The record is a 115-nucleotide RNA from Sinocyclocheilus grahami, which matches "MIR1520 microRNA precursor family" in Rfam. Pairs were carried over by alignment from the consensus structure, which was predicted with RNAalifold.
RNA sequence: AACUAAACACAGGAGUGUUACAGGUAAUGUUAUUGAAGAAUAUUAAUAAAGAAAACAAUGCAUUGUUUUCUUUAUUAAUAUUCUUCAAUAACAUUACCUGUAACACUCCUGUGUU
Numbered sequence: 001a002a003c004u005a006a007a008c009a010c011a012g013g014a015g016u017g018u019u020a021c022a023g024g025u026a027a028u029g030u031u032a033u034u035g036a037a038g039a040a041u042a043u044u045a046a047u048a049a050a051g052a053a054a055a056c057a058a059u060g061c062a063u064u065g066u067u068u069u070c071u072u073u074a075u076u077a078a079u080a081u082u083c084u085u086c087a088a089u090a091a092c093a094u095u096a097c098c099u100g101u102a103a104c105a106c107u108c109c110u111g112u113g114u115u
Base pairs, nucleotide, nucleotide: 017104018103019102020101022099023098026095027094028093030091031090032089033088035086036085037084